[Rfam]
RNA sequence: AGCCCCCACCGGCGAAGAUAUGGUGGACUUGGACCUGGCACAGCAGUAGCGCAGGGAAAUGAAUGUCCGUUUGACGGCGGAGACUCGUGUCACUACCUUCGGAUGCAGAUCAGAUAUGCCUAAUGAACUGAUUUGACACGUUU
Numbered sequence: 001a002g003c004c005c006c007c008a009c010c011g012g013c014g015a016a017g018a019u020a021u022g023g024u025g026g027a028c029u030u031g032g033a034c035c036u037g038g039c040a041c042a043g044c045a046g047u048a049g050c051g052c053a054g055g056g057a058a059a060u061g062a063a064u065g066u067c068c069g070u071u072u073g074a075c076g077g078c079g080g081a082g083a084c085u086c087g088u089g090u091c092a093c094u095a096c097c098u099u100c101g102g103a104u105g106c107a108g109a110u111c112a113g114a115u116a117u118g119c120c121u122a123a124u125g126a127a128c129u130g131a132u133u134u135g136a137c138a139c140g141u142u143u
Stems, first nucleotide, its partner, number of pairs: 006026005035054003038050002040047002066081004086140006097102001108133006

Shown here is a 143-nucleotide RNA sequence, a member of the family "Polynucleobacter-1 RNA". Rfam's curators put it in the seed alignment. It is annotated as a small RNA.